[Rfam]
RNA: Glycine riboswitch aptamer
Organism: Lachnoclostridium sp. An14
RNA sequence: GGCAACCUCUCUGGAGAGUCUCCGUGUGAGCGCCGAAGGUGUAAGGCAGGAAGGAAAAAGAACCUGCUGUAUCUCUCAGGCAAAAGGACAGGGCAGUGUAA
Number, nucleotide and partner (000 for none) at each position: 001g000002g000003c000004a000005a000006c096007c000008u000009c093010u092011c091012u090013g089014g000015a000016g000017a000018g000019u000020c030021u029022c028023c000024g000025u000026g000027u000028g022029a021030g020031c000032g081033c080034c079035g077036a076037a000038g000039g075040u000041g073042u000043a000044a000045g068046g067047c066048a065049g064050g063051a000052a000053g000054g000055a000056a000057a000058a000059a000060g000061a000062a000063c050064c049065u048066g047067c046068u045069g000070u000071a000072u000073c041074u000075c039076u036077c035078a000079g034080g033081c032082a000083a000084a000085a000086g000087g000088a000089c013090a012091g011092g010093g009094c000095a000096g006097u000098g000099u000100a000101a000